This 131-nucleotide RNA sequence from Phyllostomus discolor belongs to the Rfam family "Small nucleolar RNA SNORA24".
Pairs were carried over by alignment from the consensus structure, which was predicted with RNAfold.
Lineage of the source: Eukaryota > Bilateria > Tetrapoda > Yangochiroptera > Phyllostomus.
From the family's description: ACA24 is a member of the H/ACA class of snoRNA that guide the sites of modification of uridines to pseudouridines.
The match comes from Rfam's covariance-model search (112 bits).
Its family is annotated with nucleolus and RNA processing in the Gene Ontology.
RNA sequence: UUCCCUGUGUUUUUGGGGCCUGUCAGCCGUGGCAGUCUCCCCUCGUAGCUGUGGAAGAGCGUGUCCUUGUGUACGGGCAAAGCUGGCACCAUUUAACUGGUGUCAGAUUCUGACUUGCACAAGUAACCUUC
Numbered sequence: 001u002u003c004c005c006u007g008u009g010u011u012u013u014u015g016g017g018g019c020c021u022g023u024c025a026g027c028c029g030u031g032g033c034a035g036u037c038u039c040c041c042c043u044c045g046u047a048g049c050u051g052u053g054g055a056a057g058a059g060c061g062u063g064u065c066c067u068u069g070u071g072u073a074c075g076g077g078c079a080a081a082g083c084u085g086g087c088a089c090c091a092u093u094u095a096a097c098u099g100g101u102g103u104c105a106g107a108u109u110c111u112g113a114c115u116u117g118c119a120c121a122a123g124u125a126a127c128c129u130u131c
Base pairs, nucleotide, nucleotide: 002055003054004053006051007050015041016040017039018038020035021034022033023032024031069127070126076120077118078117079116080115083106084105085104088101089100090099091098